[Rfam]
RNA sequence: GGAAGGGAAUCGCAUCCCGGUGGAGCGCCCGGACUUCAAAUCCGGCGAGACGCGAAACGCGUCUGGUGGGUUCGACUCCCACUCCCUUCC
Numbered sequence: 001g002g003a004a005g006g007g008a009a010u011c012g013c014a015u016c017c018c019g020g021u022g023g024a025g026c027g028c029c030c031g032g033a034c035u036u037c038a039a040a041u042c043c044g045g046c047g048a049g050a051c052g053c054g055a056a057a058c059g060c061g062u063c064u065g066g067u068g069g070g071u072u073c074g075a076c077u078c079c080c081a082c083u084c085c086c087u088u089c090c
Base pairs, nucleotide, nucleotide: 001090002089003088004087005086006085007084008083011027012026013025015024016023017022029045030044031043032042033041048064049063050062051061052060067081068080069079070078
Source information: The record is a 90-nucleotide RNA sequence from Aquisalimonas sp. 2447, which matches "Selenocysteine transfer RNA" in Rfam. The family's consensus secondary structure is taken from published work. Taxonomically the source falls in Aquisalimonas (Bacteria, Pseudomonadati, Gammaproteobacteria, Ectothiorhodospiraceae).